[Rfam]
RNA sequence: GUUUAUAAUUAAAUGAAAUUGCGUAUAAUUUCGGGAAUAUGGCCCAAAGUCUCUACCAAACCACCGUAAACGGUUUGACUACGCAGGAUGGGUAAUGAAGC
Numbered sequence: 001g002u003u004u005a006u007a008a009u010u011a012a013a014u015g016a017a018a019u020u021g022c023g024u025a026u027a028a029u030u031u032c033g034g035g036a037a038u039a040u041g042g043c044c045c046a047a048a049g050u051c052u053c054u055a056c057c058a059a060a061c062c063a064c065c066g067u068a069a070a071c072g073g074u075u076u077g078a079c080u081a082c083g084c085a086g087g088a089u090g091g092g093u094a095a096u097g098a099a100g101c
Stems, first nucleotide, its partner, number of pairs: 019086007029048003033045003057077006